[Rfam]
RNA sequence: GCCGGUCCUCGGUAGUGGCCCCCGGGGGACAGCGGUCCCCGGGUGCUUCGAUCGAAGACCGGC
Numbered sequence: 001g002c003c004g005g006u007c008c009u010c011g012g013u014a015g016u017g018g019c020c021c022c023c024g025g026g027g028g029a030c031a032g033c034g035g036u037c038c039c040c041g042g043g044u045g046c047u048u049c050g051a052u053c054g055a056a057g058a059c060c061g062g063c
Stems, first nucleotide, its partner, number of pairs: 001063007009055005017047003021043006028037003
The record is a 63-nucleotide sequence from Streptomyces ruber, which matches "Actino-pnp RNA" in Rfam. It is annotated as a cis-regulatory element. The organism belongs to Streptomyces, within Bacteria. The base pairs follow the family's consensus structure, which is taken from published work.